[Rfam]
RNA sequence: AGGCAGCCCCUUUGCGCUGUCAAUGGCAAUGGAGGCGUUGCGUUCCUCGGACAACGAAUCUCUUGAUCUUCAGAUCAGCUGAGAGGGGAGCUUCGCCUUCCCUCGCUGAGGCUCGUCUAGUAGUCUUGAGAACAUG
Numbered sequence: 001a002g003g004c005a006g007c008c009c010c011u012u013u014g015c016g017c018u019g020u021c022a023a024u025g026g027c028a029a030u031g032g033a034g035g036c037g038u039u040g041c042g043u044u045c046c047u048c049g050g051a052c053a054a055c056g057a058a059u060c061u062c063u064u065g066a067u068c069u070u071c072a073g074a075u076c077a078g079c080u081g082a083g084a085g086g087g088g089a090g091c092u093u094c095g096c097c098u099u100c101c102c103u104c105g106c107u108g109a110g111g112c113u114c115g116u117c118u119a120g121u122a123g124u125c126u127u128g129a130g131a132a133c134a135u136g
Stems, first nucleotide, its partner, number of pairs: 002039003007035002009032002012029004060130003065125003072118004078112003083104008
The family of this 136-nucleotide sequence from Paspalum vaginatum is "Small nucleolar RNA snoR77".
Rfam links the family to the GO terms RNA processing and nucleolus.
On this family, see Marker et al., Curr Biol 2002: "Experimental RNomics: identification of 140 candidates for small non-messenger RNAs in the plant Arabidopsis thaliana".
NCBI's taxonomy places the organism under Eukaryota, commelinids, Poaceae, Paspaleae, Paspalum.